Overview:
Small nucleolar RNA SNORA73 family: a 212-nucleotide sequence from Macrochelys temminckii. Rfam's curators write: U17 (SNORA73A and SNORA73B) also known as E1 belongs to the H/ACA class of small nucleolar RNAs (snoRNAs). Vertebrate U17 is intron-encoded and ranges in length from 200-230 nucleotides, longer than most snoRNAs. It is one of the most abundant snoRNAs in human cells and is essential for the cleavage of pre-rRNA within the 5' external transcribed spacer (ETS). On this family, see Enright et al., RNA 1996: "5'ETS rRNA processing facilitated by four small RNAs: U14, E3, U17, and U3". Rfam classes the family as an H/ACA-box small nucleolar RNA. The base pairs follow the family's consensus structure, which is taken from published work.
[Rfam]
RNA sequence: CCAAUAUAGUUAUCCGUUGAGGUUACUCGUGGCUCUGUCCAAGUGGUAUAUGGGAGCGUAGCCCUAACUGCAAUGAUGUACAAUCCCCUUCCACAGUGUUGAAGAUCAAGCCUGUCUUUGAUUCUAGAGCUGAUGAGAGCAGCAUCCUUUAUAUUCCUAUAACUUCUCCGUCUCUAGACAAUUACUGAGGAGAAACCUUGCAGGGCGCAACU
Numbered sequence: 001c002c003a004a005u006a007u008a009g010u011u012a013u014c015c016g017u018u019g020a021g022g023u024u025a026c027u028c029g030u031g032g033c034u035c036u037g038u039c040c041a042a043g044u045g046g047u048a049u050a051u052g053g054g055a056g057c058g059u060a061g062c063c064c065u066a067a068c069u070g071c072a073a074u075g076a077u078g079u080a081c082a083a084u085c086c087c088c089u090u091c092c093a094c095a096g097u098g099u100u101g102a103a104g105a106u107c108a109a110g111c112c113u114g115u116c117u118u119u120g121a122u123u124c125u126a127g128a129g130c131u132g133a134u135g136a137g138a139g140c141a142g143c144a145u146c147c148u149u150u151a152u153a154u155u156c157c158u159a160u161a162a163c164u165u166c167u168c169c170g171u172c173u174c175u176a177g178a179c180a181a182u183u184a185c186u187g188a189g190g191a192g193a194a195a196c197c198u199u200g201c202a203g204g205g206c207g208c209a210a211c212u
Stems, first nucleotide, its partner, number of pairs: 002101006009039001011037002014032003018029004043094004052087004056081001058079003061074001146204003150200002163192006170179003
Dot-bracket structure: .((((((.(.((.(((.((((....)))))))...)).)...((((.....(((((.((((............)..))).)..))))...)))).))))))............................................(((.((...........((((((.(((....))).......))))))......)).)))........